[Rfam]
RNA sequence: AUGAUGACAAGGGGAGAGACUACAUUUGUAGCGCCGAAGGAGCAAACAAAGCUGAUUUGUGAAUCUCUCAGGCAAAAGAACUCUUGUUUGACG
Numbered sequence: 001a002u003g004a005u006g007a008c009a010a011g012g013g014g015a016g017a018g019a020c021u022a023c024a025u026u027u028g029u030a031g032c033g034c035c036g037a038a039g040g041a042g043c044a045a046a047c048a049a050a051g052c053u054g055a056u057u058u059g060u061g062a063a064u065c066u067c068u069c070a071g072g073c074a075a076a077a078g079a080a081c082u083c084u085u086g087u088u089u090g091a092c093g
Stems, first nucleotide, its partner, number of pairs: 006088008020031004033073003036069002040067003046060004
Glycine riboswitch aptamer: a 93-nucleotide sequence from Bacillus methanolicus. Clan: Glycine riboswitch clan. About the family: This family represents the bacterial glycine riboswitch. Glycine riboswitches usually consist of two metabolite-binding aptamers domains with similar structures in tandem. The aptamers cooperatively bind glycine to regulate the expression of downstream genes. Its family is annotated with glycine biosynthetic process in the Gene Ontology.